RNA sequence: AACUAUAACAGUCGAUGAGGAGAGGCUUUAGUUCAUGUGUUAACAUCCGAACUCAAAAAUUUGAGAUUUAACGGUUCCAGAGGCAUUUAUUUUUGUAAGUGUCUUAUUGGGACCGAUGUGGAUUGUACCGUGGCUUUUCACCACCUUUAUAGCGGUGCUUUGGUUAUAAUCAACUGAGGCUG
Numbered sequence: 001a002a003c004u005a006u007a008a009c010a011g012u013c014g015a016u017g018a019g020g021a022g023a024g025g026c027u028u029u030a031g032u033u034c035a036u037g038u039g040u041u042a043a044c045a046u047c048c049g050a051a052c053u054c055a056a057a058a059a060u061u062u063g064a065g066a067u068u069u070a071a072c073g074g075u076u077c078c079a080g081a082g083g084c085a086u087u088u089a090u091u092u093u094u095g096u097a098a099g100u101g102u103c104u105u106a107u108u109g110g111g112a113c114c115g116a117u118g119u120g121g122a123u124u125g126u127a128c129c130g131u132g133g134c135u136u137u138u139c140a141c142c143a144c145c146u147u148u149a150u151a152g153c154g155g156u157g158c159u160u161u162g163g164u165u166a167u168a169a170u171c172a173a174c175u176g177a178g179g180c181u182g
Stems, first nucleotide, its partner, number of pairs: 009182005016140006025134003029125007044118004067112003071108001073103003077099001082094002085092001142157004